Shown here is a 104-nucleotide RNA sequence from Bacillus sp. 7884-1, a member of the family "SAM riboswitch aptamer (S box leader)". Gene Ontology term of the family: regulation of gene expression.
RNA sequence: UUCUUAUCCAGAGAGGUUGAGGGACUGGCCCUAUGACACCUCGGCAGCGGAACCCAAUGGGGACUGUGCCAAAUCCAGCAAGCAGCAGGCUUGGGAGAUAAGAA
Numbered sequence: 001u002u003c004u005u006a007u008c009c010a011g012a013g014a015g016g017u018u019g020a021g022g023g024a025c026u027g028g029c030c031c032u033a034u035g036a037c038a039c040c041u042c043g044g045c046a047g048c049g050g051a052a053c054c055c056a057a058u059g060g061g062g063a064c065u066g067u068g069c070c071a072a073a074u075c076c077a078g079c080a081a082g083c084a085g086c087a088g089g090c091u092u093g094g095g096a097g098a099u100a101a102g103a104a
Stems, first nucleotide, its partner, number of pairs: 001104008013042005021031003025078004043070004048066002053059001074096001079093005